[Rfam]
Rfam assigns this 386-nucleotide RNA sequence from Candidatus Brocadiaceae bacterium S225 to the family "Bacterial RNase P class A".
RNA sequence: GAAGCAGGCAGGAUGGCCGCUUCAGGGAUUAUAUAACCCGUCUAAUCCUUGAAGAGGAAAGUCCGAGCUCCACAGGAUACAGUGCUCUGUAACACAGAGUGGGAGUGAUCCCAAGGAAAGUGCCACAGAAAAGAUACCGCCUUGUGAUACACUAUUCACAAGGUAAGGGUGAAAAGGUGGGGCCUGAUAACGGCUUAAUGUAAGAGCCCACCGCUCUCUGAGUGAUUGGAGAGGCAUGGUAAACCCCACUGGGAGAAAGGCUAAAUAGAGAGGUAUAAAGUGAUCCGCUUUUAAACCUCCGGGUAAGCCGCUUGAUUCCGAUGGCAACAUCGGAACUAGAUUAAUGGUCAUCAAAUACAGAACUCGGCUUAUGGUCUGCUUCGAUU
Numbered sequence: 001g002a003a004g005c006a007g008g009c010a011g012g013a014u015g016g017c018c019g020c021u022u023c024a025g026g027g028a029u030u031a032u033a034u035a036a037c038c039c040g041u042c043u044a045a046u047c048c049u050u051g052a053a054g055a056g057g058a059a060a061g062u063c064c065g066a067g068c069u070c071c072a073c074a075g076g077a078u079a080c081a082g083u084g085c086u087c088u089g090u091a092a093c094a095c096a097g098a099g100u101g102g103g104a105g106u107g108a109u110c111c112c113a114a115g116g117a118a119a120g121u122g123c124c125a126c127a128g129a130a131a132a133g134a135u136a137c138c139g140c141c142u143u144g145u146g147a148u149a150c151a152c153u154a155u156u157c158a159c160a161a162g163g164u165a166a167g168g169g170u171g172a173a174a175a176g177g178u179g180g181g182g183c184c185u186g187a188u189a190a191c192g193g194c195u196u197a198a199u200g201u202a203a204g205a206g207c208c209c210a211c212c213g214c215u216c217u218c219u220g221a222g223u224g225a226u227u228g229g230a231g232a233g234g235c236a237u238g239g240u241a242a243a244c245c246c247c248a249c250u251g252g253g254a255g256a257a258a259g260g261c262u263a264a265a266u267a268g269a270g271a272g273g274u275a276u277a278a279a280g281u282g283a284u285c286c287g288c289u290u291u292u293a294a295a296c297c298u299c300c301g302g303g304u305a306a307g308c309c310g311c312u313u314g315a316u317u318c319c320g321a322u323g324g325c326a327a328c329a330u331c332g333g334a335a336c337u338a339g340a341u342u343a344a345u346g347g348u349c350a351u352c353a354a355a356u357a358c359a360g361a362a363c364u365c366g367g368c369u370u371a372u373g374g375u376c377u378g379c380u381u382c383g384a385u386u
Stems, first nucleotide, its partner, number of pairs: 001382009010372001012352007020054012059370003063367005068255004075286004080251005085099005100114001101112004115246002120244002122240003137168002139164009176212006213235001214233008259309004270299005277291005316335008
Background
Ribonuclease P (RNase P) is a ubiquitous endoribonuclease, found in archaea, bacteria and eukarya as well as chloroplasts and mitochondria. NCBI's taxonomy places the organism under Bacteria, Pseudomonadati, Planctomycetota, Candidatus Brocadiia, Candidatus Brocadiaceae.